The family of this 47-nucleotide RNA is "COG2908 RNA".
Rfam's curators put it in the seed alignment.
Nucleotides: 047
Stems, first nucleotide, its partner, number of pairs: 001047004006027002012019002032042004
Number, partner (000 for none) and nucleotide at each position: 001047a002046c003045u004044c005000g006027c007026c008000u009000c010000a011000a012019c013018c014000u015000u016000u017000c018013g019012g020000u021000g022000u023000a024000g025000a026007g027006g028000u029000c030000a031000u032042g033041c034040g035039c036000a037000u038000g039035g040034c041033g042032c043000u044004g045003a046002g047001u

Rfam classes the family as a cis-regulatory element.